[Rfam]
RNA: Mammalian CPEB3 ribozyme
RNA sequence: AGGUUGCACAUUGAGGCCACAGCAGAAGUGCUCGCAGCAUAGCCCUGUCAGACCCCGACAAGUCUGUCAAUUCUGCU
Numbered sequence: 001a002g003g004u005u006g007c008a009c010a011u012u013g014a015g016g017c018c019a020c021a022g023c024a025g026a027a028g029u030g031c032u033c034g035c036a037g038c039a040u041a042g043c044c045c046u047g048u049c050a051g052a053c054c055c056c057g058a059c060a061a062g063u064c065u066g067u068c069a070a071u072u073c074u075g076c077u
Stems, first nucleotide, its partner, number of pairs: 013045001015044003021077007028040003049066005